[Rfam]
RNA sequence: UGCAAGUAUUUACGAUUCAAAAACAAUUGUUUCUUGUACAAAUUGUGUAUUAAUCU
Dot-bracket structure: ................(.(.((((....)))).).)....................
This 56-nucleotide RNA from Gossypium stocksii belongs to the Rfam family "Plastid-rps18 3UTR RNA". The organism belongs to Gossypium, within Eukaryota. Plastid rps18 is a non-coding RNA (ncRNA) present in plastids. Rfam 15.1 lists 1,462 matches to the family in 409 species.